[Rfam]
RNA sequence: CUGCGGGGACGACCCCGCAAUCACUCGGCAGAUCCGGGACGACCCGA
Numbered sequence: 001c002u003g004c005g006g007g008g009a010c011g012a013c014c015c016c017g018c019a020a021u022c023a024c025u026c027g028g029c030a031g032a033u034c035c036g037g038g039a040c041g042a043c044c045c046g047a
Stems, first nucleotide, its partner, number of pairs: 002019007035046004
RNA: Guanidine-II riboswitch aptamer (mini-ykkC)
Organism: Pelagibacterium lentulum